[Rfam]
RNA sequence: AUGUGACACUUUUUGAAUUUCGAGAUUCAAACAAGUCUAUCUUUGACCGUAAAUUUUUCAUACAUCUUUUUAAUAUUUUGUGUUGUUGUGACUUAUAGUACUUUUUAUGUAGUUUAUAAAUAUAUAAAUUUCAUUUCAAAAAAAUUAAAGAUUACAUGGGUAAAUUAUCGGUCAAACUUAAACUGUUUGACUCUCGAAAAAUGAAAAGUACCACAUAA
Numbered sequence: 001a002u003g004u005g006a007c008a009c010u011u012u013u014u015g016a017a018u019u020u021c022g023a024g025a026u027u028c029a030a031a032c033a034a035g036u037c038u039a040u041c042u043u044u045g046a047c048c049g050u051a052a053a054u055u056u057u058u059c060a061u062a063c064a065u066c067u068u069u070u071u072a073a074u075a076u077u078u079u080g081u082g083u084u085g086u087u088g089u090g091a092c093u094u095a096u097a098g099u100a101c102u103u104u105u106u107a108u109g110u111a112g113u114u115u116a117u118a119a120a121u122a123u124a125u126a127a128a129u130u131u132c133a134u135u136u137c138a139a140a141a142a143a144a145u146u147a148a149a150g151a152u153u154a155c156a157u158g159g160g161u162a163a164a165u166u167a168u169c170g171g172u173c174a175a176a177c178u179u180a181a182a183c184u185g186u187u188u189g190a191c192u193c194u195c196g197a198a199a200a201a202u203g204a205a206a207a208g209u210a211c212c213a214c215a216u217a218a
Stems, first nucleotide, its partner, number of pairs: 001216005008209008018199008027190007035183002038180002042176008052166005057160005064152006076141005082135001084133002087126004093119006100113003
The family of this 218-nucleotide RNA sequence from Solanum tuberosum is "MIR8007 microRNA precursor family". The base pairs follow the family's consensus structure, which was predicted with RNAalifold.